mir-34 microRNA precursor family: a 72-nucleotide RNA sequence from Papilio machaon. On this family, see Houbaviy et al., Dev Cell 2003: "Embryonic stem cell-specific MicroRNAs". The base pairs follow the family's consensus structure, which was predicted with RNAalifold. A search with the family's covariance model found it, with a score of 62 bits. The family has 113 seed sequences and 2,256 matches in Rfam 15.1. The family is grouped with related families in Rfam's "mir-34 clan". About the family: Human mir-34a was discovered computationally and later experimentally verified. The mature sequence is excised from the 5' arm of the hairpin.
[Rfam]
Nucleotides: 072
Base pairs, nucleotide, nucleotide: 002071003070005068006067009064010063012061013060014059015058017056018055019054020053021052022051024050025049026048027047028046029045030044031043
Number, partner (000 for none) and nucleotide at each position: 001000a002071a003070c004000u005068c006067g007000u008000u009064g010063g011000c012061a013060g014059u015058g016000u017056g018055g019054u020053u021052a022051g023000c024050u025049g026048g027047u028046u029045g030044u031043u032000u033000g034000u035000a036000a037000u038000g039000u040000g041000a042000c043031a044030a045029c046028a047027g048026c049025c050024a051022c052021u053020a054019a055018c056017u057000c058015c059014a060013c061012u062000g063010c064009u065000u066000c067006u068005g069000c070003g071002u072000u